[Rfam]
RNA sequence: GCCACAAACAUUCGAAACGUUCGUAUAUCCUUGAGAAUUGGCUUGAGGGUUUCUAGAGGGAGCCUUAACUUCCUAGCUACGACGGGUACUGCUUCCGCA
Numbered sequence: 001g002c003c004a005c006a007a008a009c010a011u012u013c014g015a016a017a018c019g020u021u022c023g024u025a026u027a028u029c030c031u032u033g034a035g036a037a038u039u040g041g042c043u044u045g046a047g048g049g050u051u052u053c054u055a056g057a058g059g060g061a062g063c064c065u066u067a068a069c070u071u072c073c074u075a076g077c078u079a080c081g082a083c084g085g086g087u088a089c090u091g092c093u094u095c096c097g098c099a
Stems, first nucleotide, its partner, number of pairs: 018085001021082005029048007057074006
Dot-bracket structure: .................(..(((((...(((((((......)))))))........((((((......))))))...)))))..)..............

This 99-nucleotide sequence from Paenibacillus sedimenti belongs to the Rfam family "Purine riboswitch aptamer".
Pairs were carried over by alignment from the consensus structure, which is taken from published work.
A search with the family's covariance model found it, with a score of 46 bits.
The family has 133 seed sequences and 4,097 matches in Rfam 15.1.
The organism belongs to Paenibacillus, within Bacteria.